[Rfam]
RNA sequence: CGCCAAGUCCGAGGCUUCGGCAACCACCGGAGCCUGGUGCAAGAAGGA
Numbered sequence: 001c002g003c004c005a006a007g008u009c010c011g012a013g014g015c016u017u018c019g020g021c022a023a024c025c026a027c028c029g030g031a032g033c034c035u036g037g038u039g040c041a042a043g044a045a046g047g048a
Base pairs, nucleotide, nucleotide: 013034014033015032016031017030018029019028020027
RNA: raiA-hairpin RNA